[Rfam]
RNA sequence: AUAACUGCAUGUCUCCGAGCUCUUUUGCCUAAGGUUUACUACGGUAAAUUUGCCGAUAGGGUUAUACUGGAAACGGUAUAGCCUCCCCAUUGGAAAGGAGAUACGGAUGUAAGUAA
Numbered sequence: 001a002u003a004a005c006u007g008c009a010u011g012u013c014u015c016c017g018a019g020c021u022c023u024u025u026u027g028c029c030u031a032a033g034g035u036u037u038a039c040u041a042c043g044g045u046a047a048a049u050u051u052g053c054c055g056a057u058a059g060g061g062u063u064a065u066a067c068u069g070g071a072a073a074c075g076g077u078a079u080a081g082c083c084u085c086c087c088c089a090u091u092g093g094a095a096a097g098g099a100g101a102u103a104c105g106g107a108u109g110u111a112a113g114u115a116a
Stems, first nucleotide, its partner, number of pairs: 003110001006107001011102006019053002024048006033040002059084011085093002
The family of this 116-nucleotide RNA sequence from Desulfuribacillus alkaliarsenatis is "Molybdenum/Tungsten riboswitch aptamer (Moco RNA motif)". A reference for the family is Weinberg et al. (2007), "Identification of 22 candidate structured RNAs in bacteria using the CMfinder comparative genomics pipeline", Nucleic Acids Res. A search with the family's covariance model found it, with a score of 76 bits.